[Rfam]
RNA: Group II catalytic intron D1-D4-6
Organism: Desulfonema limicola
RNA sequence: UAAGUCCCGCCUGAUUAAAGUUUAGCCAGCAGGUCAGCAGCGAAGUCCGAAGCCGGACAGAGUGAGGAUACAGGCCGUGUGAUUGAGCCCCGAAAAGGGUAUAGUCGUGGACAUUGGAUUAAGCUCUUAAAGCAAGAGCAAAAGCCGACGCUGUUGAGUGAGCGGAAGGCAGCAGACCUUGCAGCGAUAUGGCGGGCAGCAGGGUUUCCACCGGGGUCUGAGAGCA
Number, nucleotide and partner (000 for none) at each position: 001u000002a000003a000004g000005u000006c000007c000008c000009g000010c000011c000012u036013g035014a034015u033016u032017a000018a000019a000020g030021u029022u028023u195024a000025g193026c192027c000028a022029g021030c020031a000032g016033g015034u014035c013036a012037g000038c062039a000040g000041c060042g000043a000044a000045g058046u057047c056048c055049g000050a000051a000052g000053c000054c000055g048056g047057a046058c045059a000060g041061a000062g038063u000064g000065a000066g000067g000068a000069u000070a000071c000072a000073g000074g000075c000076c000077g000078u000079g000080u000081g000082a000083u000084u220085g218086a000087g217088c216089c215090c214091c213092g212093a000094a000095a000096a000097g000098g000099g000100u000101a000102u000103a000104g000105u000106c000107g211108u210109g209110g208111a207112c000113a000114u000115u000116g000117g000118a000119u000120u000121a000122a000123g000124c000125u000126c000127u000128u000129a000130a000131a000132g000133c000134a000135a000136g000137a000138g000139c000140a000141a000142a000143a000144g170145c169146c168147g000148a000149c164150g163151c162152u161153g000154u000155u000156g000157a000158g000159u000160g000161a152162g151163c150164g149165g000166a000167a000168g146169g145170c144171a000172g000173c000174a000175g206176a205177c204178c203179u202180u201181g200182c199183a000184g197185c196186g000187a000188u000189a000190u000191g000192g026193c025194g000195g023196g185197c184198a000199g182200c181201a180202g179203g178204g177205u176206u175207u111208c110209c109210a108211c107212c092213g091214g090215g089216g088217u087218c085219u000220g084221a000222g000223a000224g000225c000226a000